[Rfam]
RNA sequence: AAGCUUACCCUGUAAAUCGGAGAAGUCGAUCUAUUUAACACAUUUCUCGUUUCACAGGGUAUAUUU
Numbered sequence: 001a002a003g004c005u006u007a008c009c010c011u012g013u014a015a016a017u018c019g020g021a022g023a024a025g026u027c028g029a030u031c032u033a034u035u036u037a038a039c040a041c042a043u044u045u046c047u048c049g050u051u052u053c054a055c056a057g058g059g060u061a062u063a064u065u066u
Base pairs, nucleotide, nucleotide: 006061007060008059009058010057011056012055013054015052016051018049019048021047022046023045024044025043026042
RNA: mir-1991 microRNA precursor family
Organism: Pomacea canaliculata